Small nucleolar RNA SNORA30/SNORA37 family: a 131-nucleotide sequence from Catagonus wagneri. From the family's description: The members of this family belong to the H/ACA class of snoRNAs that guide the sites of modification of uridines to pseudouridines. The family's RNA type in Rfam is H/ACA-box small nucleolar RNA.

[Rfam]
RNA sequence: UUAGCACUUUCACAGGUCCUUCCCCAGGCCGUGGGGAUAGGAUUUGGUAGCUGGUGCUGAAAUUGAAAACCCUUGAUUACAUCCUUGCCCUGGGACUGUAUCAGUGGCAACUAUCACUCAAUGGGACAGAU
Numbered sequence: 001u002u003a004g005c006a007c008u009u010u011c012a013c014a015g016g017u018c019c020u021u022c023c024c025c026a027g028g029c030c031g032u033g034g035g036g037a038u039a040g041g042a043u044u045u046g047g048u049a050g051c052u053g054g055u056g057c058u059g060a061a062a063u064u065g066a067a068a069a070c071c072c073u074u075g076a077u078u079a080c081a082u083c084c085u086u087g088c089c090c091u092g093g094g095a096c097u098g099u100a101u102c103a104g105u106g107g108c109a110a111c112u113a114u115c116a117c118u119c120a121a122u123g124g125g126a127c128a129g130a131u
Base pairs, nucleotide, nucleotide: 003058004057005056006055007054008053013046014045015044017042018041019040020039022036023035024034025033070125071124072123073121074120075119076118078116081114082113085110086109087108088107089106090104091103092102093101